Rfam assigns this 103-nucleotide RNA sequence from Gemmiger sp. An120 to the family "THF (Tetrahydrofolate) riboswitch aptamer". Rfam 15.1 lists 747 matches to the family in 747 species. Gene Ontology term of the family: tetrahydrofolate metabolic process.
[Rfam]
Nucleotides: 103
Stems, first nucleotide, its partner, number of pairs: 002102004010090006017083003020079003026056002029054004034050003040096003060076006
Number, partner (000 for none) and nucleotide at each position: 001000c002102g003101c004100a005099g006000a007000g008000u009000a010090a011089g012088g013087g014086u015085c016000u017083g018082c019081g020079c021078g022077u023000u024000a025000a026056g027055u028000g029054c030053c031052g032051u033000u034050c035049c036048g037000a038000c039000g040096g041095g042094g043000a044000g045000u046000u047000g048036c049035g050034g051032g052031c053030g054029g055027a056026c057000g058000a059000a060076a061075a062074a063073g064072g065071c066000g067000u068000u069000u070000u071065g072064c073063c074062u075061u076060u077022g078021c079020g080000g081019u082018g083017c084000u085015g086014a087013c088012c089011u090010u091000g092000a093000a094042u095041c096040c097000c098000g099005c100004u101003g102002c103000u
Source information:
A search with the family's covariance model found it, with a score of 75 bits.